[Rfam]
RNA: ilvB-OMG RNA
RNA sequence: GUCUCACUCAUGGCAACAGCUAACGUCGAGUACCCUCGGCCUCUGGCUCACUGGAUUGAUCCGAUUAUUCAAGCCAGCUGUUUGUGAGUCCCAUAAUCAAUUUGCGCCGCAUUGGCCAGGUUGAGGGCCAGACACUGCGCUACCUCGCAGGGCGACGAUACACGGUUUGUGAUCGAUUUUUCCCUGAUGGAGCGUUGCUCCCUGAAGUGGAAAGCACAGUG
Numbered sequence: 001g002u003c004u005c006a007c008u009c010a011u012g013g014c015a016a017c018a019g020c021u022a023a024c025g026u027c028g029a030g031u032a033c034c035c036u037c038g039g040c041c042u043c044u045g046g047c048u049c050a051c052u053g054g055a056u057u058g059a060u061c062c063g064a065u066u067a068u069u070c071a072a073g074c075c076a077g078c079u080g081u082u083u084g085u086g087a088g089u090c091c092c093a094u095a096a097u098c099a100a101u102u103u104g105c106g107c108c109g110c111a112u113u114g115g116c117c118a119g120g121u122u123g124a125g126g127g128c129c130a131g132a133c134a135c136u137g138c139g140c141u142a143c144c145u146c147g148c149a150g151g152g153c154g155a156c157g158a159u160a161c162a163c164g165g166u167u168u169g170u171g172a173u174c175g176a177u178u179u180u181u182c183c184c185u186g187a188u189g190g191a192g193c194g195u196u197g198c199u200c201c202c203u204g205a206a207g208u209g210g211a212a213a214g215c216a217c218a219g220u221g
Base pairs, nucleotide, nucleotide: 018048019047020046021045022044025040026039027038028037029036030035051077052076053075056072057071058070059069060067088128089127091126092125098123099122100121101120102119103118104117148186149185150184151183152182154180156175157174158173159172161171162170163169164168